[Rfam]
RNA sequence: CUCCCAUCCCCGGGGAGUCAUGUGACUGAGAGGGGCGUGUAACGCCGCCCGACCCGUUGAACCUGAACCCGUUAGCACGGGCGGAGGGAAGGGUGGCCCCGGCCAG
Numbered sequence: 001c002u003c004c005c006a007u008c009c010c011c012g013g014g015g016a017g018u019c020a021u022g023u024g025a026c027u028g029a030g031a032g033g034g035g036c037g038u039g040u041a042a043c044g045c046c047g048c049c050c051g052a053c054c055c056g057u058u059g060a061a062c063c064u065g066a067a068c069c070c071g072u073u074a075g076c077a078c079g080g081g082c083g084g085a086g087g088g089a090a091g092g093g094u095g096g097c098c099c100c101g102g103c104c105a106g
Stems, first nucleotide, its partner, number of pairs: 006094004011056004017026003033050005062087003068081004
A member of the RNA family "TPP riboswitch aptamer (THI element)" from Alteraurantiacibacter aestuarii, 106 nucleotides long. Pairs were carried over by alignment from the consensus structure, which is taken from published work. A search with the family's covariance model found it, with a score of 61 bits. Rfam links the family to the GO term thiamine pyrophosphate binding.